Shown here is a 94-nucleotide sequence from Cicer arietinum, a member of the family "MIR394 microRNA precursor family".
It scores 78 bits against the family's covariance model.
Gene Ontology terms of the family: RISC complex and miRNA-mediated post-transcriptional gene silencing.
The base pairs follow the family's consensus structure, which was predicted with WAR.
[Rfam]
RNA sequence: CUUACACACAUUUUUGGCAUUCUGUCCACCUCCCUUCUCUCUUUCUUUUUGCUUUGCUUUGGAGGUGGGCAUACUGCCAACAGAUAUGUGUUUA
Numbered sequence: 001c002u003u004a005c006a007c008a009c010a011u012u013u014u015u016g017g018c019a020u021u022c023u024g025u026c027c028a029c030c031u032c033c034c035u036u037c038u039c040u041c042u043u044u045c046u047u048u049u050u051g052c053u054u055u056g057c058u059u060u061g062g063a064g065g066u067g068g069g070c071a072u073a074c075u076g077c078c079a080a081c082a083g084a085u086a087u088g089u090g091u092u093u094a
Stems, first nucleotide, its partner, number of pairs: 011084001014080006023071011